[Rfam]
Rfam assigns this 65-nucleotide RNA sequence from Callithrix jacchus to the family "mir-290 microRNA precursor family".
The source organism's lineage runs through Eukaryota, Euteleostomi, Amniota, Platyrrhini and Callithrix.
The base pairs follow the family's consensus structure, which was predicted with RNAalifold.
Its Rfam clan is "mir-290 clan".
It scores 56 bits against the family's covariance model.
RNA sequence: GUAACACUCAAAAAAUGGCGGCACUUUCACCAGAACAGAAAGUGCCCCCACAGUUUGAGUGGCAC
Dot-bracket structure: ....((((((((...(((.(((((((((.........))))))))).)))...))))))))....